c-di-GMP-II-GAG riboswitch aptamer: an 85-nucleotide RNA sequence. Its family is annotated with regulation of gene expression and cyclic-di-GMP binding in the Gene Ontology. The literature on the family includes a 2017 paper in Proc Natl Acad Sci U S A by Weinberg et al., "Bioinformatic analysis of riboswitch structures uncovers variant classes with altered ligand specificity".

RNA sequence: UCGUACGCGGAGGGCUUGGACGCGCGGCCCACAUUCUGGCCGCCGGGACCGCGCCGAGCCACUGGCGAGACCGACCCGCGCAUGG
Numbered sequence: 001u002c003g004u005a006c007g008c009g010g011a012g013g014g015c016u017u018g019g020a021c022g023c024g025c026g027g028c029c030c031a032c033a034u035u036c037u038g039g040c041c042g043c044c045g046g047g048a049c050c051g052c053g054c055c056g057a058g059c060c061a062c063u064g065g066c067g068a069g070a071c072c073g074a075c076c077c078g079c080g081c082a083u084g085g
Base pairs, nucleotide, nucleotide: 001085002084003083004082006080007079008078009077010076013060014059015058022054023053024052025051026050027049029047038072039071041067042066043065044064